[Rfam]
RNA sequence: GUGCCUUAAACUAAUGAGUAAGGAAAAUAUAUGAGCCUUGGUGACGCUUGGCUUUAUGCUAGUGCUCAUCUAGCCCGUAUAAUUUUUUGAGGGGCACAGGUCGUCCUCGUGAAUAGCUGCCUACUUUUGCAGUGGUUCAGUGUGACAGCGAUCUACCCC
Numbered sequence: 001g002u003g004c005c006u007u008a009a010a011c012u013a014a015u016g017a018g019u020a021a022g023g024a025a026a027a028u029a030u031a032u033g034a035g036c037c038u039u040g041g042u043g044a045c046g047c048u049u050g051g052c053u054u055u056a057u058g059c060u061a062g063u064g065c066u067c068a069u070c071u072a073g074c075c076c077g078u079a080u081a082a083u084u085u086u087u088u089g090a091g092g093g094g095c096a097c098a099g100g101u102c103g104u105c106c107u108c109g110u111g112a113a114u115a116g117c118u119g120c121c122u123a124c125u126u127u128u129g130c131a132g133u134g135g136u137u138c139a140g141u142g143u144g145a146c147a148g149c150g151a152u153c154u155a156c157c158c159c
Stems, first nucleotide, its partner, number of pairs: 004023005033054005040047001058074005091159004098154007107142001110139005116133005
RNA: U12 minor spliceosomal RNA
Organism: Oryctes borbonicus